Rfam assigns this 182-nucleotide sequence from Thiovibrio frasassiensis to the family "6S / SsrS RNA". The family has 150 seed sequences and 5,006 matches in Rfam 15.1. The family's consensus secondary structure is taken from published work.
RNA sequence: UUUCCCCUGCCUUGUUAGUGAUUUAGGAGAGUGUCUCGAGCCAAUAUUUAAAUUGAGGGCGACGUUGCUGUUUCUGGGAUGGAAUCCAUUUAGGUGGAAUUCCUUUAAGGGAACACAGGUACCGCCCACCUAACUCAGUUAGGUUCGAUGUCAUAUCCUGACACUUCUAUGGCGGGGGAUUU
Numbered sequence: 001u002u003u004c005c006c007c008u009g010c011c012u013u014g015u016u017a018g019u020g021a022u023u024u025a026g027g028a029g030a031g032u033g034u035c036u037c038g039a040g041c042c043a044a045u046a047u048u049u050a051a052a053u054u055g056a057g058g059g060c061g062a063c064g065u066u067g068c069u070g071u072u073u074c075u076g077g078g079a080u081g082g083a084a085u086c087c088a089u090u091u092a093g094g095u096g097g098a099a100u101u102c103c104u105u106u107a108a109g110g111g112a113a114c115a116c117a118g119g120u121a122c123c124g125c126c127c128a129c130c131u132a133a134c135u136c137a138g139u140u141a142g143g144u145u146c147g148a149u150g151u152c153a154u155a156u157c158c159u160g161a162c163a164c165u166u167c168u169a170u171g172g173c174g175g176g177g178g179a180u181u182u
Stems, first nucleotide, its partner, number of pairs: 003179009012169001014167001017165003033152001035150001037147006057127003061123001064120003069115007081103002086097004